The record is a 116-nucleotide sequence, which matches "TPP riboswitch aptamer (THI element)" in Rfam.

RNA sequence: AGAGGGCGCCGGGGGAGCUGGGAGAAACCCGGCUGAGAGGGCAGCUUGUGCGCUGCCGACCCCCCUCGAACCUGAUCCGGGUAAUGCCGGCGUAGGGAGAGCGCCCUUCUCCUUAU
Numbered sequence: 001a002g003a004g005g006g007c008g009c010c011g012g013g014g015g016a017g018c019u020g021g022g023a024g025a026a027a028c029c030c031g032g033c034u035g036a037g038a039g040g041g042c043a044g045c046u047u048g049u050g051c052g053c054u055g056c057c058g059a060c061c062c063c064c065c066u067c068g069a070a071c072c073u074g075a076u077c078c079g080g081g082u083a084a085u086g087c088c089g090g091c092g093u094a095g096g097g098a099g100a101g102c103g104c105c106c107u108u109c110u111c112c113u114u115a116u
Stems, first nucleotide, its partner, number of pairs: 006104004011065004017033005040057005071096004077090004
Pairs were carried over by alignment from the consensus structure, which is taken from published work. Rfam links the family to the GO term thiamine pyrophosphate binding.